[Rfam]
RNA sequence: AACUAGGUGAAGGUUUGGAAUGGAUUCAAUCGAAUGUCGGCUGAAGAGGACCCUAGUUGGUCCUAAAACGGCCUGAGGUAGAGGGGUUUUAGUCGGUAGGUCCGAGGACUUCUUCCUCGGGAAUCCGACACUACCCAGUCGUACGGACGGCUGGGUGUCUUCUGAAGAUUUCCCCUCUUCCACGAAA
Dot-bracket structure: ........................................................((.((...............((.((.(((......(((((....((((((((.....))))))))...))))).(.(((((..............))))))..............)))..)).)))).)).
RNA: R2 RNA element
Organism: Agrilus planipennis